[Rfam]
RNA sequence: GGGGAUGAUCGGUUUCGACUGGGGAUGUCGAAGCAGGGGAAGCGAGCCGAGGAAGCGGCAAUGAUCUCGUUAACCAUAUGUCGCAAAACAUAAUCGCCAACACCAAGCGCGAUGCCUCCGCUUUCUCCCUCGCUGCCUAAUAAGUAGCUAGAGAGAAAGCUCUACGGAGUGUCAGCCCAGGAGCUGUUCCCGGCCUGGAUCCUGGCAUAAUCAAGGGAACUAAACUUCAUGACCCGGUCACGGGGGCUUGAAGGAAACCAAACAGUGACUGAGCCCGUUGGCAACUUGUCCGCGUGAUUGCCAGGGCUGAGAAAAGCACAGCGGACUGCGCUCGGAGAAGCCCUGAUUCCGCACCACAGGACGCGGGUUCGAUUCCCGCCAUCUCCACCA
Numbered sequence: 001g002g003g004g005a006u007g008a009u010c011g012g013u014u015u016c017g018a019c020u021g022g023g024g025a026u027g028u029c030g031a032a033g034c035a036g037g038g039g040a041a042g043c044g045a046g047c048c049g050a051g052g053a054a055g056c057g058g059c060a061a062u063g064a065u066c067u068c069g070u071u072a073a074c075c076a077u078a079u080g081u082c083g084c085a086a087a088a089c090a091u092a093a094u095c096g097c098c099a100a101c102a103c104c105a106a107g108c109g110c111g112a113u114g115c116c117u118c119c120g121c122u123u124u125c126u127c128c129c130u131c132g133c134u135g136c137c138u139a140a141u142a143a144g145u146a147g148c149u150a151g152a153g154a155g156a157a158a159g160c161u162c163u164a165c166g167g168a169g170u171g172u173c174a175g176c177c178c179a180g181g182a183g184c185u186g187u188u189c190c191c192g193g194c195c196u197g198g199a200u201c202c203u204g205g206c207a208u209a210a211u212c213a214a215g216g217g218a219a220c221u222a223a224a225c226u227u228c229a230u231g232a233c234c235c236g237g238u239c240a241c242g243g244g245g246g247c248u249u250g251a252a253g254g255a256a257a258c259c260a261a262a263c264a265g266u267g268a269c270u271g272a273g274c275c276c277g278u279u280g281g282c283a284a285c286u287u288g289u290c291c292g293c294g295u296g297a298u299u300g301c302c303a304g305g306g307c308u309g310a311g312a313a314a315a316g317c318a319c320a321g322c323g324g325a326c327u328g329c330g331c332u333c334g335g336a337g338a339a340g341c342c343c344u345g346a347u348u349c350c351g352c353a354c355c356a357c358a359g360g361a362c363g364c365g366g367g368u369u370c371g372a373u374u375c376c377c378g379c380c381a382u383c384u385c386c387a388c389c390a
Base pairs, nucleotide, nucleotide: 001386002385003384004383005382006381007380019359020358021357023355024354030349031348032347034345035344036343037342038341043334044333045332046331047330048069049068050067051066052065055084056083057082058081059080060079129151130150132148133147134146135145136144170207171206172205173204174203175202177198178197179196180195181194186220187219188218189217190216191215225253226252227251228250229249231247236270237269238268239267240266241265272308273307274306275305276304279303280302281301284299286297288326289325290324291323363379364378365377366376367375

Rfam assigns this 390-nucleotide RNA sequence from Streptomyces sp. So13.3 to the family "transfer-messenger RNA". The match comes from Rfam's covariance-model search (168 bits). The base pairs follow the family's consensus structure, which is taken from published work. Rfam describes the family as follows. Bacterial tmRNA, also known as 10Sa RNA or SsrA, is named for its dual tRNA and mRNA-like properties.